[Rfam]
RNA sequence: AAAAGGGGCUUCUGUUAUGAGUGCCACACAUAGGGCAGUUUGUUCUUCCUGAGGAAACAAUAUCAAGAAAUUUUGGAAGCAUAAUUGUUUUCUACUUAGGCAGCUGGUAAUCAUCGGUCCUGGUACCCCA
Numbered sequence: 001a002a003a004a005g006g007g008g009c010u011u012c013u014g015u016u017a018u019g020a021g022u023g024c025c026a027c028a029c030a031u032a033g034g035g036c037a038g039u040u041u042g043u044u045c046u047u048c049c050u051g052a053g054g055a056a057a058c059a060a061u062a063u064c065a066a067g068a069a070a071u072u073u074u075g076g077a078a079g080c081a082u083a084a085u086u087g088u089u090u091u092c093u094a095c096u097u098a099g100g101c102a103g104c105u106g107g108u109a110a111u112c113a114u115c116g117g118u119c120c121u122g123g124u125a126c127c128c129c130a
Stems, first nucleotide, its partner, number of pairs: 008080005013026002016023002027051002032046006053074004099127002103124005110118003
RNA: U11 spliceosomal RNA
Organism: Moschus moschiferus